Rfam assigns this 130-nucleotide sequence from Vitis vinifera to the family "MIR845_2 microRNA precursor family". A search with the family's covariance model found it, with a score of 119 bits. A reference for the family is Jaillon et al. (2007), "The grapevine genome sequence suggests ancestral hexaploidization in major angiosperm phyla", Nature. The base pairs follow the family's consensus structure, which was predicted with WAR. The source organism's lineage runs through Eukaryota, Streptophyta, Streptophytina, Tracheophyta and Vitis.
[Rfam]
RNA sequence: AGAACGCACAUUAAUUGUCCUUGGGGCCAUGGGGAUAAACAAAAACCCUGCAAAACCAAGUUAACACACCCUACAAUGGUUCUAGCACGAUUACUAACCUAUGGCUCUUAUACCAGAAUGGGAAAAACCC
Numbered sequence: 001a002g003a004a005c006g007c008a009c010a011u012u013a014a015u016u017g018u019c020c021u022u023g024g025g026g027c028c029a030u031g032g033g034g035a036u037a038a039a040c041a042a043a044a045a046c047c048c049u050g051c052a053a054a055a056c057c058a059a060g061u062u063a064a065c066a067c068a069c070c071c072u073a074c075a076a077u078g079g080u081u082c083u084a085g086c087a088c089g090a091u092u093a094c095u096a097a098c099c100u101a102u103g104g105c106u107c108u109u110a111u112a113c114c115a116g117a118a119u120g121g122g123a124a125a126a127a128c129c130c
Base pairs, nucleotide, nucleotide: 009120010119011118012117015116016115023108024107025106026105027104028103029102030101031100032099033098049087050086054081055080057078058077062073063072